A member of the RNA family "mir-9256 microRNA precursor family" from Cnephaeus nilssonii, 67 nucleotides long. Gene Ontology terms of the family: RISC complex and miRNA-mediated post-transcriptional gene silencing. Taxonomically the source falls in Cnephaeus (Eukaryota, Teleostomi, Sarcopterygii, Tetrapoda).
RNA sequence: ACUUACACUGAGUGGCCAGAUUAUUAUGAUCUCUGAGCGCAUAACAAUUUGGCCACUCAGUGUGUGU
Number, nucleotide and partner (000 for none) at each position: 001a000002c000003u000004u064005a063006c062007a061008c060009u059010g058011a057012g056013u055014g054015g053016c052017c051018a000019g049020a048021u047022u046023a000024u044025u043026a042027u041028g040029a000030u000031c000032u000033c000034u000035g000036a000037g000038c000039g000040c028041a027042u026043a025044a024045c000046a022047a021048u020049u019050u000051g017052g016053c015054c014055a013056c012057u011058c010059a009060g008061u007062g006063u005064g004065u000066g000067u000